[Rfam]
Rfam assigns this 395-nucleotide sequence from endosymbiont GvMRE of Glomus versiforme to the family "Bacterial RNase P class B". A search with the family's covariance model found it, with a score of 208 bits. Taxonomically the source falls in Mycoplasmatales (Bacteria, Bacillati, Mycoplasmatota, Mollicutes). From the family's description: Ribonuclease P (RNase P) is a ubiquitous endoribonuclease, found in archaea, bacteria and eukarya as well as chloroplasts and mitochondria. Its best characterised activity is the generation of mature 5'-ends of tRNAs by cleaving the 5'-leader elements of precursor-tRNAs. Cellular RNase Ps are ribonucleoproteins. RNA from bacterial RNase Ps retains its catalytic activity in the absence of the protein subunit, i.e. it is a ribozyme. Isolated eukaryotic and archaeal RNase P RNA has not been shown to retain its catalytic function, but is still essential for the catalytic activity of the holoenzyme. Although the archaeal and eukaryotic holoenzyme s have a much greater protein content than the bacterial ones, the RNA cores from all the three lineages are homologous -- helices corresponding to P1, P2, P3, P4, and P10/11 are common to all cellular RNase P RNAs. Yet, there is considerable sequence variation, particularly among the eukaryotic RNAs.
RNA sequence: ACCAAACACUGAUGACAGUUAGUUAAUAACUAGUUGAGGAAAGUCCGUACUCGCCCAAGCUGCGACGCUUGGAGUGUUGGUGCUAGAGUUAAUAAUUCUAGGCAGGAACGAAAGUUCUUGACGACUGACGAAAUACCUAAUUAGGUUCUUAAAUAGGGUAUUUAUAGUUUGUCAUGUUCUCCACCCUUACCUCCUUUCUACUUAUAAGGUAUUAGUCUAUAAAAGUGCUAUAGUGACGAAUACUAGAGAAAUCUAGGAAGUGAGACGACGUAAACCCCACCAGCGAGCAAUCCAAAUUAAUUGGUAGGAGCAGCCAAAAGGAAGAAAUGAAUUCUAAUUGGCUAUUCGCAAGAAUAAGAUAAAUCAUCAGUUAAAACAGAAUACGGCUUAUGUUU
Numbered sequence: 001a002c003c004a005a006a007c008a009c010u011g012a013u014g015a016c017a018g019u020u021a022g023u024u025a026a027u028a029a030c031u032a033g034u035u036g037a038g039g040a041a042a043g044u045c046c047g048u049a050c051u052c053g054c055c056c057a058a059g060c061u062g063c064g065a066c067g068c069u070u071g072g073a074g075u076g077u078u079g080g081u082g083c084u085a086g087a088g089u090u091a092a093u094a095a096u097u098c099u100a101g102g103c104a105g106g107a108a109c110g111a112a113a114g115u116u117c118u119u120g121a122c123g124a125c126u127g128a129c130g131a132a133a134u135a136c137c138u139a140a141u142u143a144g145g146u147u148c149u150u151a152a153a154u155a156g157g158g159u160a161u162u163u164a165u166a167g168u169u170u171g172u173c174a175u176g177u178u179c180u181c182c183a184c185c186c187u188u189a190c191c192u193c194c195u196u197u198c199u200a201c202u203u204a205u206a207a208g209g210u211a212u213u214a215g216u217c218u219a220u221a222a223a224a225g226u227g228c229u230a231u232a233g234u235g236a237c238g239a240a241u242a243c244u245a246g247a248g249a250a251a252u253c254u255a256g257g258a259a260g261u262g263a264g265a266c267g268a269c270g271u272a273a274a275c276c277c278c279a280c281c282a283g284c285g286a287g288c289a290a291u292c293c294a295a296a297u298u299a300a301u302u303g304g305u306a307g308g309a310g311c312a313g314c315c316a317a318a319a320g321g322a323a324g325a326a327a328u329g330a331a332u333u334c335u336a337a338u339u340g341g342c343u344a345u346u347c348g349c350a351a352g353a354a355u356a357a358g359a360u361a362a363a364u365c366a367u368c369a370g371u372u373a374a375a376a377c378a379g380a381a382u383a384c385g386g387c388u389u390a391u392g393u394u395u
Stems, first nucleotide, its partner, number of pairs: 004395003008371007016036006041389003045386005050287005055072006078282005083101006102122001103120006123277001127217003134211004142204005225275002227271002243256005291309003313342005343356005